[Rfam]
Nucleotides: 068
Base pairs, nucleotide, nucleotide: 005064006063007062008061009060011058012057013056014055015054016053019050020049021048022047023046025044026043027042028041
Number, partner (000 for none) and nucleotide at each position: 001000c002000c003000g004000u005064c006063a007062c008061u009060g010000c011058u012057g013056c014055u015054a016053a017000u018000c019050u020049g021048c022047a023046a024000c025044u026043c027042u028041g029000u030000u031000g032000a033000g034000c035000a036000c037000a038000c039000a040000c041028u042027g043026g044025a045000a046023u047022u048021g049020c050019a051000c052000u053016u054015u055014a056013g057012c058011a059000a060009u061008g062007g063006u064005g065000a066000u067000g068000g
The family of this 68-nucleotide sequence from Rattus norvegicus is "mir-367 microRNA precursor family". Rfam links the family to the GO terms RISC complex and miRNA-mediated post-transcriptional gene silencing. For this family Rfam cites "The expression profile of microRNAs in mouse embryos" (Mineno et al., Nucleic Acids Res, 2006). The base pairs follow the family's consensus structure, which was predicted with RNAalifold. Taxonomically the source falls in Rattus (Eukaryota, Deuterostomia, Dipnotetrapodomorpha, Amniota). A search with the family's covariance model found it, with a score of 80 bits.